[Rfam]
RNA sequence: UCCAAGAAGAGGAAGAAAGAGAGCGUGCAAGAGUAGUGGAAAUGGGAACAUAGGAGAAAGUAUUACUCGCAAUUCUUCCCUUGCUCAUUGAAGUGUCGGAGCGAUGGAGACCUUGCUUAUAUGCUUUCUCGAUGCCUUCCAUUUCUAUCUUUCUGCGUGUUCUUUCCUCUUCCUUUUGGUU
Number, nucleotide and partner (000 for none) at each position: 001u000002c000003c000004a000005a000006g000007a000008a000009g172010a171011g170012g169013a168014a000015g166016a165017a164018a000019g000020a000021g162022a161023g160024c000025g000026u157027g156028c155029a154030a000031g153032a152033g151034u000035a000036g000037u147038g146039g145040a144041a143042a142043u141044g140045g139046g138047a137048a000049c134050a133051u132052a000053g130054g000055a129056g128057a127058a126059a125060g124061u123062a122063u121064u000065a000066c000067u000068c000069g000070c000071a000072a000073u000074u000075c000076u000077u000078c000079c000080c000081u000082u000083g000084c000085u000086c000087a000088u000089u000090g000091a000092a000093g000094u000095g000096u000097c000098g000099g000100a000101g000102c000103g000104a000105u000106g000107g000108a000109g000110a000111c000112c000113u000114u000115g000116c000117u000118u000119a000120u000121a063122u062123g061124c060125u059126u058127u057128c056129u055130c053131g000132a051133u050134g049135c000136c000137u047138u046139c045140c044141a043142u042143u041144u040145c039146u038147a037148u000149c000150u000151u033152u032153c031154u029155g028156c027157g026158u000159g000160u023161u022162c021163u000164u017165u016166c015167c000168u013169c012170u011171u010172c009173c000174u000175u000176u000177u000178g000179g000180u000181u000
The family of this 181-nucleotide RNA sequence from Panicum miliaceum is "MIR2118 microRNA precursor family". The literature on the family includes a 2009 paper in Nucleic Acids Res by Xue et al., "Characterization and expression profiles of miRNAs in rice seeds".